[Rfam]
RNA sequence: CCAGUCGGCCGGGCAGCCGCGUCUUCGCCGGGAACCCGGCGAAGCCGAGGAAAGUCCGGGCUCCAUCCGGCACGGUGGUGGGUAACGCCCACCCGGAGCGAUCCGCGGGACAGUGCCACAGAGAGCAGACCGCCCCCGCGCCCGAGGGUGCGGAGGCAAGGGUGAAAGGGUGGUGUAAGAGACCACCGCGGCCUCGGUGACGAGGACGGCACGGCAAACCCCACCGGGAGCAAGGUCAGACAGGGAACGCUCGAGGGCGCCGGCCCGAGUUCCCGGGUAGACCGCUGGAGGUCGUCGGCAACGGCGAUCCGAGAGGGAUGGCUGCCGAUCACAGAACCCGGCUUACAGGCCGACUGGUCCG
Numbered sequence: 001c002c003a004g005u006c007g008g009c010c011g012g013g014c015a016g017c018c019g020c021g022u023c024u025u026c027g028c029c030g031g032g033a034a035c036c037c038g039g040c041g042a043a044g045c046c047g048a049g050g051a052a053a054g055u056c057c058g059g060g061c062u063c064c065a066u067c068c069g070g071c072a073c074g075g076u077g078g079u080g081g082g083u084a085a086c087g088c089c090c091a092c093c094c095g096g097a098g099c100g101a102u103c104c105g106c107g108g109g110a111c112a113g114u115g116c117c118a119c120a121g122a123g124a125g126c127a128g129a130c131c132g133c134c135c136c137c138g139c140g141c142c143c144g145a146g147g148g149u150g151c152g153g154a155g156g157c158a159a160g161g162g163u164g165a166a167a168g169g170g171u172g173g174u175g176u177a178a179g180a181g182a183c184c185a186c187c188g189c190g191g192c193c194u195c196g197g198u199g200a201c202g203a204g205g206a207c208g209g210c211a212c213g214g215c216a217a218a219c220c221c222c223a224c225c226g227g228g229a230g231c232a233a234g235g236u237c238a239g240a241c242a243g244g245g246a247a248c249g250c251u252c253g254a255g256g257g258c259g260c261c262g263g264c265c266c267g268a269g270u271u272c273c274c275g276g277g278u279a280g281a282c283c284g285c286u287g288g289a290g291g292u293c294g295u296c297g298g299c300a301a302c303g304g305c306g307a308u309c310c311g312a313g314a315g316g317g318a319u320g321g322c323u324g325c326c327g328a329u330c331a332c333a334g335a336a337c338c339c340g341g342c343u344u345a346c347a348g349g350c351c352g353a354c355u356g357g358u359c360c361g
Stems, first nucleotide, its partner, number of pairs: 001357010011346001012326007020047002023044008052344003056341005061230004068262004073226005078092005093107001094105004108221002113219002115215003130161002132157003136153007169187006188210001189208002192205005234283004243274006255266004290309008
Rfam assigns this 361-nucleotide RNA from Brachybacterium sp. UMB0905 to the family "Bacterial RNase P class A". Taxonomically the source falls in Brachybacterium (Bacteria, Actinomycetes, Micrococcales, Dermabacteraceae). It is annotated as a ribozyme.